This 100-nucleotide RNA from Chitinivibrio alkaliphilus belongs to the Rfam family "Bacterial small signal recognition particle RNA".

RNA sequence: GGUCAGGUCCUGCUCAAUGGUUGCGUCGUGAAUCCCGCCAGGUCCGGAAGGAAGCAACGGUAAGCGAUUGUGACCAUGUGACGCAGAGUGCUUGGCCCCU
Numbered sequence: 001g002g003u004c005a006g007g008u009c010c011u012g013c014u015c016a017a018u019g020g021u022u023g024c025g026u027c028g029u030g031a032a033u034c035c036c037g038c039c040a041g042g043u044c045c046g047g048a049a050g051g052a053a054g055c056a057a058c059g060g061u062a063a064g065c066g067a068u069u070g071u072g073a074c075c076a077u078g079u080g081a082c083g084c085a086g087a088g089u090g091c092u093u094g095g096c097c098c099c100u
Stems, first nucleotide, its partner, number of pairs: 004094005010086004015078001017077006025068005035060003043052003
NCBI's taxonomy places the organism under Bacteria, Fibrobacterota, Chitinivibrionaceae, Chitinivibrio, Chitinivibrio alkaliphilus.